The record is a 508-nucleotide sequence from a Streptosporangiales bacterium, which matches "Saccharopolyspora sRNA 350" in Rfam. The organism belongs to Streptosporangiales, within Bacteria. The family's consensus secondary structure was predicted with RNAfold. Rfam classes the family as an antisense RNA. Rfam 15.1 lists 1,170 matches to the family in 705 species.
RNA sequence: UUGGCGGUGAACUGCCACGUGUCGUCGGACUCCACCAGCGUGCGGUCGCCGAAGUAGUCGCCGUCGGCCAGCACGUCGAGCACGGUGGGGGUGCCGUACUUCCCAGGGCCGAUCUUGUUGACUUUGCCGUGGGCGAUGAGGAAGACCUGGUCGGCCGGCUGGCCGGCCUCGACCAGCACGUCACCGACUUCGAACUCCUGCUGGACGAACUGGUCUGCCAGCGCGGUGAGCAACUCGGUGUCGUCCAGCCCGCGCAGCAGCGGCAGCUCGUUGAGCUCCUGCGGGAUGACCGACACGUCGGUGCCGACAUUGGUGAACGUCAGCUGCCCGUCACCCACCGCGAAGCUGCGCCGACGGUUGACUCGGUACGUGCCGCCGGUCGCCUCAACCCACGGCAACACUCGCAGCAGCCACCGCGAGGUGAUCCCCUGCAUCUGCGGGACGGACUUGGUAGUCGUCGCGAGGUUCCGCGCCGCCGCCGUCCCCAGGCUCUGCGUGACCUGCCCGU
Numbered sequence: 001u002u003g004g005c006g007g008u009g010a011a012c013u014g015c016c017a018c019g020u021g022u023c024g025u026c027g028g029a030c031u032c033c034a035c036c037a038g039c040g041u042g043c044g045g046u047c048g049c050c051g052a053a054g055u056a057g058u059c060g061c062c063g064u065c066g067g068c069c070a071g072c073a074c075g076u077c078g079a080g081c082a083c084g085g086u087g088g089g090g091g092u093g094c095c096g097u098a099c100u101u102c103c104c105a106g107g108g109c110c111g112a113u114c115u116u117g118u119u120g121a122c123u124u125u126g127c128c129g130u131g132g133g134c135g136a137u138g139a140g141g142a143a144g145a146c147c148u149g150g151u152c153g154g155c156c157g158g159c160u161g162g163c164c165g166g167c168c169u170c171g172a173c174c175a176g177c178a179c180g181u182c183a184c185c186g187a188c189u190u191c192g193a194a195c196u197c198c199u200g201c202u203g204g205a206c207g208a209a210c211u212g213g214u215c216u217g218c219c220a221g222c223g224c225g226g227u228g229a230g231c232a233a234c235u236c237g238g239u240g241u242c243g244u245c246c247a248g249c250c251c252g253c254g255c256a257g258c259a260g261c262g263g264c265a266g267c268u269c270g271u272u273g274a275g276c277u278c279c280u281g282c283g284g285g286a287u288g289a290c291c292g293a294c295a296c297g298u299c300g301g302u303g304c305c306g307a308c309a310u311u312g313g314u315g316a317a318c319g320u321c322a323g324c325u326g327c328c329c330g331u332c333a334c335c336c337a338c339c340g341c342g343a344a345g346c347u348g349c350g351c352c353g354a355c356g357g358u359u360g361a362c363u364c365g366g367u368a369c370g371u372g373c374c375g376c377c378g379g380u381c382g383c384c385u386c387a388a389c390c391c392a393c394g395g396c397a398a399c400a401c402u403c404g405c406a407g408c409a410g411c412c413a414c415c416g417c418g419a420g421g422u423g424a425u426c427c428c429c430u431g432c433a434u435c436u437g438c439g440g441g442a443c444g445g446a447c448u449u450g451g452u453a454g455u456c457g458u459c460g461c462g463a464g465g466u467u468c469c470g471c472g473c474c475g476c477c478g479c480c481g482u483c484c485c486c487a488g489g490c491u492c493u494g495c496g497u498g499a500c501c502u503g504c505c506c507g508u
Stems, first nucleotide, its partner, number of pairs: 006390003011385001014328001017325001020322002023319002025316002035313004040308002045305001047303006055232001058229007065111004075103001078101003082097005117222004122217001127212001129210002132206001134204001136202001139199003143196002150191001154188001156186003160183001162177001165174002235295001240290006249283001251281002254278001256277003260271003329342003351379003355375003361371002391431002394428002397425001399423003403418003407415001437476004443470004447465003451461002477507002480503002485498001488495001